[Rfam]
The record is an 81-nucleotide sequence from Exophiala mesophila, which matches "tRNA" in Rfam. It is annotated as a transfer RNA. Its family is annotated with triplet codon-amino acid adaptor activity in the Gene Ontology. The match comes from Rfam's covariance-model search (56 bits). Transfer RNA (tRNA) molecules are approximately 80 nucleotides in length.

RNA sequence: GGGGUUGUAGCUCAGGGGUAGAGCGCUCGCUUUGCAUCUUAAGCCUGCGAGAGGCCCGGAGUUCGAAUCUCCGCUGCUCCA
Numbered sequence: 001g002g003g004g005u006u007g008u009a010g011c012u013c014a015g016g017g018g019u020a021g022a023g024c025g026c027u028c029g030c031u032u033u034g035c036a037u038c039u040u041a042a043g044c045c046u047g048c049g050a051g052a053g054g055c056c057c058g059g060a061g062u063u064c065g066a067a068u069c070u071c072c073g074c075u076g077c078u079c080c081a
Stems, first nucleotide, its partner, number of pairs: 001080005007074001010024004026051005057073005